A member of the RNA family "Group II catalytic intron D1-D4-1" from Nitrospirillum viridazoti, 83 nucleotides long. NCBI's taxonomy places the organism under Bacteria, Pseudomonadati, Alphaproteobacteria, Rhodospirillales, Nitrospirillum viridazoti. The family has 237 seed sequences and 2,508 matches in Rfam 15.1.

[Rfam]
RNA sequence: CUACCGGCGUCGCGAGGCGCCGGGAUGGGGUGGCAGAAGUCAGCAGAAGCCGUAGUAGCCGGCGUACCGGGUCGGUGAAGGGC
Numbered sequence: 001c002u003a004c005c006g007g008c009g010u011c012g013c014g015a016g017g018c019g020c021c022g023g024g025a026u027g028g029g030g031u032g033g034c035a036g037a038a039g040u041c042a043g044c045a046g047a048a049g050c051c052g053u054a055g056u057a058g059c060c061g062g063c064g065u066a067c068c069g070g071g072u073c074g075g076u077g078a079a080g081g082g083c
Stems, first nucleotide, its partner, number of pairs: 001027001004023008040047002049083003058076006
Pairs were carried over by alignment from the consensus structure.